About this RNA
Bacterial RNase P class A: a 390-nucleotide RNA from Reichenbachiella sp. 5M10. The match comes from Rfam's covariance-model search (256 bits). Clan: RNaseP clan. The base pairs follow the family's consensus structure, which is taken from published work. Rfam classes the family as a ribozyme. Lineage of the source: Bacteria > Bacteroidota > Cytophagia > Cytophagales > Reichenbachiella.
RNA sequence: UCAAUAGGUCGCCUUAUCGUUCCGAUUGUAUCGGAAAGGAAAGUCCGGGCAACAUAGAGCAUCGUACUUCCUAACGGGAAGCUUUUGGCGAGAGCCAGGGGAGAUAGUGCAACAGAAAGAAUACCGCCUAUCUAUCAAGGCAACUUGACAGAUAGGUAAGGGUGAAAUGGUGGAGUAAGAGCCCACCGGUCAUGCAGUGAUGCAGGACGCAUUGUAAACCUUACGAGUUGAAAGAUCAAAUAGGUCCUGUAGAAGCUGCUCGCUUCGUUCUCCUCGGAGUAAACAGGAUGGGUAGAUCGUUAGAUUGUGUCAGCAAUGGCAGAGCUAGAUAAAUGAUAAGGGUCUCGAUUCGUCGAGAUACAGAACCCGGCUUAUAGACCUAUUUUUAUU
Numbered sequence: 001u002c003a004a005u006a007g008g009u010c011g012c013c014u015u016a017u018c019g020u021u022c023c024g025a026u027u028g029u030a031u032c033g034g035a036a037a038g039g040a041a042a043g044u045c046c047g048g049g050c051a052a053c054a055u056a057g058a059g060c061a062u063c064g065u066a067c068u069u070c071c072u073a074a075c076g077g078g079a080a081g082c083u084u085u086u087g088g089c090g091a092g093a094g095c096c097a098g099g100g101g102a103g104a105u106a107g108u109g110c111a112a113c114a115g116a117a118a119g120a121a122u123a124c125c126g127c128c129u130a131u132c133u134a135u136c137a138a139g140g141c142a143a144c145u146u147g148a149c150a151g152a153u154a155g156g157u158a159a160g161g162g163u164g165a166a167a168u169g170g171u172g173g174a175g176u177a178a179g180a181g182c183c184c185a186c187c188g189g190u191c192a193u194g195c196a197g198u199g200a201u202g203c204a205g206g207a208c209g210c211a212u213u214g215u216a217a218a219c220c221u222u223a224c225g226a227g228u229u230g231a232a233a234g235a236u237c238a239a240a241u242a243g244g245u246c247c248u249g250u251a252g253a254a255g256c257u258g259c260u261c262g263c264u265u266c267g268u269u270c271u272c273c274u275c276g277g278a279g280u281a282a283a284c285a286g287g288a289u290g291g292g293u294a295g296a297u298c299g300u301u302a303g304a305u306u307g308u309g310u311c312a313g314c315a316a317u318g319g320c321a322g323a324g325c326u327a328g329a330u331a332a333a334u335g336a337u338a339a340g341g342g343u344c345u346c347g348a349u350u351c352g353u354c355g356a357g358a359u360a361c362a363g364a365a366c367c368c369g370g371c372u373u374a375u376a377g378a379c380c381u382a383u384u385u386u387u388a389u390u
Base pairs, nucleotide, nucleotide: 003384004383005382006381007380008379009378010377011375012341013340014339015338016337017336018335020036021035022034023033024032025031026030041373042372043371045370046369047368048367049366050230051229052228053227057275058274059273062226063225064224065223066222067081068080069079070078071077082101086097087096088095089094102221103220107219108218109215110214111213124161125160126157127156128155129154130153131152132151133150169187170186171185172184173183188210189208190207191206193204194203195202196201234298235297236296237295244289245288246287247286248285249284268278269277270276305324306323308321309320310319311318312317